This 87-nucleotide RNA sequence from Cicer arietinum belongs to the Rfam family "Small nucleolar RNA snoR109". Pairs were carried over by alignment from the consensus structure, which was predicted with WAR. Its family is annotated with nucleolus and RNA processing in the Gene Ontology. Rfam classes the family as an H/ACA-box small nucleolar RNA.

[Rfam]
RNA sequence: CGGCUGUAGCCAAAUUAAAUCGAAGGAGCUUACUGGCCGGUUAUUGUGUUUCUGUCGAUAAAUCUGCUUACCGAGCUUCUCACAUUU
Numbered sequence: 001c002g003g004c005u006g007u008a009g010c011c012a013a014a015u016u017a018a019a020u021c022g023a024a025g026g027a028g029c030u031u032a033c034u035g036g037c038c039g040g041u042u043a044u045u046g047u048g049u050u051u052c053u054g055u056c057g058a059u060a061a062a063u064c065u066g067c068u069u070a071c072c073g074a075g076c077u078u079c080u081c082a083c084a085u086u087u
Stems, first nucleotide, its partner, number of pairs: 024080007035068003039064004043059004
Dot-bracket structure: .......................(((((((....(((.((((((((.........)))).)))).))).....))))))).......